A member of the RNA family "Small nucleolar RNA SNORD87" from Chrysemys picta, 82 nucleotides long. A search with the family's covariance model found it, with a score of 52 bits. The pairing is the family consensus, mapped onto this sequence. By type it is a C/D-box small nucleolar RNA. Rfam 15.1 lists 539 matches to the family in 430 species. On this family, see Gogolevskaya et al., Gene 2002: "U87 RNA, a novel C/D box small nucleolar RNA from mammalian cells". Lineage of the source: Eukaryota > Chordata > Gnathostomata > Testudines > Chrysemys picta.
RNA sequence: GAUGGCCUAAUGAUGAUUAUCUUUUGCCGUUUACCCAGCUGAUUCUUUCUGGAGAGAAAACAUCUGAGUCUGAUGUGCCAUC
Dot-bracket structure: ((((((......................................................................))))))